[Rfam]
RNA sequence: GGAACCGUGAGGAACCGUCUGAAGGAAGUUGGAGCGCAAAACUAUGAGCCGACGAACAGAAACAGCAUAUAAGGCCUGGUCUCCGGGUAAGCCUGCACAACAUGUCAAAGCCCAAGAUUCAGGAGACAGGGUAAAUGCUGCGGUUGUGUAGUGACAGUUCACGUU
Number, nucleotide and partner (000 for none) at each position: 001g016002g015003a000004a000005c012006c011007g000008u000009g000010a000011g006012g005013a000014a000015c002016c001017g000018u000019c000020u000021g000022a000023a000024g000025g000026a000027a000028g165029u000030u163031g162032g000033a000034g000035c000036g158037c157038a000039a000040a000041a152042c151043u150044a149045u148046g147047a145048g144049c143050c142051g141052a000053c000054g000055a000056a000057c000058a000059g000060a000061a000062a000063c140064a139065g138066c137067a136068u135069a000070u000071a000072a000073g000074g132075c131076c130077u000078g000079g127080u126081c125082u124083c123084c122085g113086g112087g111088u110089a000090a000091g106092c000093c104094u000095g000096c000097a000098c000099a000100a000101c000102a000103u000104g093105u000106c091107a000108a000109a000110g088111c087112c086113c085114a000115a000116g000117a000118u000119u000120c000121a000122g084123g083124a082125g081126a080127c079128a000129g000130g076131g075132u074133a000134a000135a068136u067137g066138c065139u064140g063141c051142g050143g049144u048145u047146g000147u046148g045149u044150a043151g042152u041153g000154a000155c000156a000157g037158u036159u000160c000161a000162c031163g030164u000165u028

About this RNA:
The record is a 165-nucleotide sequence from Desulfocicer vacuolatum, which matches "Group II catalytic intron D1-D4-3" in Rfam. Rfam 15.1 lists 4,274 matches to the family in 1,585 species. It scores 137 bits against the family's covariance model. Its family is annotated with Group II intron splicing in the Gene Ontology.